[Rfam]
RNA sequence: CCGCCGCCGGGAAGCGCUGAUCCUCGCAGGCUGUGACGGUCGCCUCGAGUCGGCCUCGUGUCGAUUCGACUUGCGAGGGGAGCGAGUGGCGAGCCCGCCCCGGGUGUCC
Dot-bracket structure: ..((..(((((..((......((((((..........[[[[[[[............................))))))...))....]]]]]..]]..)))))..))..

This 109-nucleotide sequence belongs to the Rfam family "c-di-GMP-II-GCG riboswitch aptamer". Its family is annotated with cyclic-di-GMP binding and regulation of gene expression in the Gene Ontology. The family is grouped with related families in Rfam's "c-di-GMP_II riboswitch clan".